[Rfam]
RNA sequence: UUCUAGCCCCGAUUGAAGCGAAAAUCCUGUCAUUGCUAAAAAAAUAUUGCUGUUUUAUUGUUUUGUUUCUGCAAUGACAGAUUGUAGUGUAAAGCGGGAGAAUGU
Numbered sequence: 001u002u003c004u005a006g007c008c009c010c011g012a013u014u015g016a017a018g019c020g021a022a023a024a025u026c027c028u029g030u031c032a033u034u035g036c037u038a039a040a041a042a043a044a045u046a047u048u049g050c051u052g053u054u055u056u057a058u059u060g061u062u063u064u065g066u067u068u069c070u071g072c073a074a075u076g077a078c079a080g081a082u083u084g085u086a087g088u089g090u091a092a093a094g095c096g097g098g099a100g101a102a103u104g105u
Stems, first nucleotide, its partner, number of pairs: 009097003013093002018088002023083004029078008